[Rfam]
Rfam assigns this 62-nucleotide RNA sequence from Allonocardiopsis opalescens to the family "Actino-pnp RNA".
Taxonomically the source falls in Allonocardiopsis (Bacteria, Bacillati, Actinomycetota, Streptosporangiales).
The family's RNA type in Rfam is cis-regulatory element.
It scores 64 bits against the family's covariance model.

RNA sequence: GCCGGUCCUCGGUAGUGGUCCGCCGGAACGCACUGUUCCGCGGGCUUCGAUCGAUGACCGGC
Numbered sequence: 001g002c003c004g005g006u007c008c009u010c011g012g013u014a015g016u017g018g019u020c021c022g023c024c025g026g027a028a029c030g031c032a033c034u035g036u037u038c039c040g041c042g043g044g045c046u047u048c049g050a051u052c053g054a055u056g057a058c059c060g061g062c
Stems, first nucleotide, its partner, number of pairs: 001062007009054005017046007025039005